Rfam assigns this 402-nucleotide RNA from Celeribacter ethanolicus to the family "Bacterial RNase P class A". The base pairs follow the family's consensus structure, which is taken from published work. Lineage of the source: Bacteria > Alphaproteobacteria > Rhodobacterales > Roseobacteraceae > Celeribacter.
RNA sequence: GCGGAUGGCCGGAUAACCGCCGCUUCUCUUUGAUGAGGAGGGGAGGAAAGUCCGGACUCCCUUGAGCAACGGUGCCGGGUAACGCCCGGCGGGGGCAACCCCAGGGACAGCGCCACAGAGAACAGACCGCUCCGCAAGACGGAGUAAGGGUGAAACGGUGGGGUAAGAGCCCACCGCGGGACGGGCAACCGGACCGGCACGGCAAGCCCCACCGGGAGCAAUGCCAAAUAGGGGUUUCGCGCGGGGUUCGUGUGCGGCAACGCAGACCGCCCGCAGGGUCGCUCAAGCCCGAGAAACCCGGGUUGGCAGCUUGAGCCGUCUGGUAACAGGCGGCCUAGAGGAAUGGUUAUCGAAGGGGCGCAAGCCCCGGAACAGAAUCCGGCUUACAGGCCGUCCGCGUCG
Numbered sequence: 001g002c003g004g005a006u007g008g009c010c011g012g013a014u015a016a017c018c019g020c021c022g023c024u025u026c027u028c029u030u031u032g033a034u035g036a037g038g039a040g041g042g043g044a045g046g047a048a049a050g051u052c053c054g055g056a057c058u059c060c061c062u063u064g065a066g067c068a069a070c071g072g073u074g075c076c077g078g079g080u081a082a083c084g085c086c087c088g089g090c091g092g093g094g095g096c097a098a099c100c101c102c103a104g105g106g107a108c109a110g111c112g113c114c115a116c117a118g119a120g121a122a123c124a125g126a127c128c129g130c131u132c133c134g135c136a137a138g139a140c141g142g143a144g145u146a147a148g149g150g151u152g153a154a155a156c157g158g159u160g161g162g163g164u165a166a167g168a169g170c171c172c173a174c175c176g177c178g179g180g181a182c183g184g185g186c187a188a189c190c191g192g193a194c195c196g197g198c199a200c201g202g203c204a205a206g207c208c209c210c211a212c213c214g215g216g217a218g219c220a221a222u223g224c225c226a227a228a229u230a231g232g233g234g235u236u237u238c239g240c241g242c243g244g245g246g247u248u249c250g251u252g253u254g255c256g257g258c259a260a261c262g263c264a265g266a267c268c269g270c271c272c273g274c275a276g277g278g279u280c281g282c283u284c285a286a287g288c289c290c291g292a293g294a295a296a297c298c299c300g301g302g303u304u305g306g307c308a309g310c311u312u313g314a315g316c317c318g319u320c321u322g323g324u325a326a327c328a329g330g331c332g333g334c335c336u337a338g339a340g341g342a343a344u345g346g347u348u349a350u351c352g353a354a355g356g357g358g359c360g361c362a363a364g365c366c367c368c369g370g371a372a373c374a375g376a377a378u379c380c381g382g383c384u385u386a387c388a389g390g391c392c393g394u395c396c397g398c399g400u401c402g
Stems, first nucleotide, its partner, number of pairs: 001398010011387001012351007020043002023040006048385003052382005057218004066283001070214005075089005090104001091102004105209002110207002112203003127149002129145006157175006176198001177196003182191003222308004232299006276290004315334008
Dot-bracket structure: ((((((((((((((((((.((.((((((......)))))).))....[[[.[[[[[((((.....[...((((((((((.....)))))(((((....)))).)((...(((((............((((((((.....))))))..)).......((((((.......))))))((((..(((....)))..))).)..)))..)))))))))))))...((((......((((((......................................((((...]...))))...)))))).....))))......((((((((....))))))))..........)))))))..........................]]]]]]]].).))))))))))....